[Rfam]
RNA sequence: AUUCAAUAUCCGAAACACCUUCGUAUAAUUUUGGGAAUAUGGCCCAUGAGUUUCUACCGGACUACCGUAAAUUGGUCCGACUACGCAGGUGAAUGAGCUUUAU
Numbered sequence: 001a002u003u004c005a006a007u008a009u010c011c012g013a014a015a016c017a018c019c020u021u022c023g024u025a026u027a028a029u030u031u032u033g034g035g036a037a038u039a040u041g042g043c044c045c046a047u048g049a050g051u052u053u054c055u056a057c058c059g060g061a062c063u064a065c066c067g068u069a070a071a072u073u074g075g076u077c078c079g080a081c082u083a084c085g086c087a088g089g090u091g092a093a094u095g096a097g098c099u100u101u102a103u
Stems, first nucleotide, its partner, number of pairs: 018089003022085004029049002032046004058079007
Record summary
This 103-nucleotide sequence from Halobacillus yeomjeoni belongs to the Rfam family "Purine riboswitch aptamer". It scores 80 bits against the family's covariance model. The base pairs follow the family's consensus structure, which is taken from published work.